A member of the RNA family "Selenocysteine insertion sequence 1" from Silurus meridionalis, 64 nucleotides long. The source organism's lineage runs through Eukaryota, Opisthokonta, Metazoa, Euteleostomi and Silurus. By type it is a cis-regulatory element. The incorporation of selenocysteine into a protein sequence is directed by an in-frame UGA codon (usually a stop codon) within the coding region of the mRNA. Selenoprotein mRNAs contain a conserved secondary structure in the 3' UTR that is required for the distinction of UGA stop from UGA selenocysteine. The selenocysteine insertion sequence (SECIS) is around 60 nt in length and adopts a hairpin structure which is sufficiently well-defined and conserved to act as a computational screen for selenoprotein genes.
[Rfam]
RNA sequence: GUCGGUUAAUGAGGACCUGCACUAAAAGCCCUUGGAGGAGAAGGCAGGUCUGAUGUGCUCCGAC
Numbered sequence: 001g002u003c004g005g006u007u008a009a010u011g012a013g014g015a016c017c018u019g020c021a022c023u024a025a026a027a028g029c030c031c032u033u034g035g036a037g038g039a040g041a042a043g044g045c046a047g048g049u050c051u052g053a054u055g056u057g058c059u060c061c062g063a064c
Base pairs, nucleotide, nucleotide: 001064002063003062004061005060014050015049016048017047018046019045020044023041029037031035